The record is an 81-nucleotide RNA sequence from Marinobacterium lacunae, which matches "Pseudomonas sRNA P9" in Rfam. Rfam describes the family as follows. This small RNA (sRNA) was computationally identified in the genome of the opportunistic pathogen Pseudomonas aeruginosa and its expression verified by northern blot analysis. P9 appears to be conserved in several Pseudomonas species in addition to Bordetella spp. In both Pseudomonas and Bordetella spp P9 appears to be located upstream of a predicted threonine dehydratase gene. The literature on the family includes a 2006 paper in Nucleic Acids Res by Livny et al., "Identification of 17 Pseudomonas aeruginosa sRNAs and prediction of sRNA-encoding genes in 10 diverse pathogens using the bioinformatic tool sRNAPredict2".
RNA sequence: CAGAUUAUUACCAUCAUUCCCUAGGAAUGGUGGGUGUCACUGCGUAGACAGCAUUUACAACCCGCCCAAGAGGCGGGUUUU
Numbered sequence: 001c002a003g004a005u006u007a008u009u010a011c012c013a014u015c016a017u018u019c020c021c022u023a024g025g026a027a028u029g030g031u032g033g034g035u036g037u038c039a040c041u042g043c044g045u046a047g048a049c050a051g052c053a054u055u056u057a058c059a060a061c062c063c064g065c066c067c068a069a070g071a072g073g074c075g076g077g078u079u080u081u
Stems, first nucleotide, its partner, number of pairs: 011033007059079008